Overview
A member of the RNA family "mir-166 microRNA precursor family" from Oryza rufipogon, 121 nucleotides long. Rfam describes the family as follows. This family represents the plant microRNA (miRNA) precursor mir-166. Rfam links the family to the GO terms miRNA-mediated post-transcriptional gene silencing and RISC complex. The literature on the family includes a 2001 paper in Cell by Ambros, "microRNAs: tiny regulators with great potential".

RNA sequence: UCUGAGUGGAAUGUUGUCUGGUUCAAGGUCUCAUGCACCUUGCGGUUUUGAGGAUGAUCUGUGCAAGGUUUUUCAUUCCUCUCAUCCGUGGGAUCUCGGACCAGGCUUCAUUCCCCUCAGA
Numbered sequence: 001u002c003u004g005a006g007u008g009g010a011a012u013g014u015u016g017u018c019u020g021g022u023u024c025a026a027g028g029u030c031u032c033a034u035g036c037a038c039c040u041u042g043c044g045g046u047u048u049u050g051a052g053g054a055u056g057a058u059c060u061g062u063g064c065a066a067g068g069u070u071u072u073u074c075a076u077u078c079c080u081c082u083c084a085u086c087c088g089u090g091g092g093a094u095c096u097c098g099g100a101c102c103a104g105g106c107u108u109c110a111u112u113c114c115c116c117u118c119a120g121a
Stems, first nucleotide, its partner, number of pairs: 001121006008114006016106006024098001026096006
Dot-bracket structure: ((((((.((((((..((((((..(.((((((...........................................................)))))).)..))))))..)))))).))))))